[Rfam]
RNA sequence: GGUCGAGCCCCGCGAUGCCACCGGACCCCCGACCCGGUCGCGUCGCGGGGCCUUCCC
Number, nucleotide and partner (000 for none) at each position: 001g000002g056003u000004c000005g053006a000007g051008c050009c049010c048011c047012g046013c045014g044015a043016u042017g041018c040019c000020a038021c037022c036023g000024g000025a000026c000027c000028c000029c000030c000031g000032a000033c000034c000035c000036g022037g021038u020039c000040g018041c017042g016043u015044c014045g013046c012047g011048g010049g009050g008051c007052c000053u005054u000055c000056c002057c000

The record is a 57-nucleotide RNA sequence, which matches "F6 TB sRNA" in Rfam. Rfam 15.1 lists 310 matches to the family in 304 species. The family's consensus secondary structure is taken from published work. On this family, see Arnvig and Young, Mol Microbiol 2009: "Identification of small RNAs in Mycobacterium tuberculosis".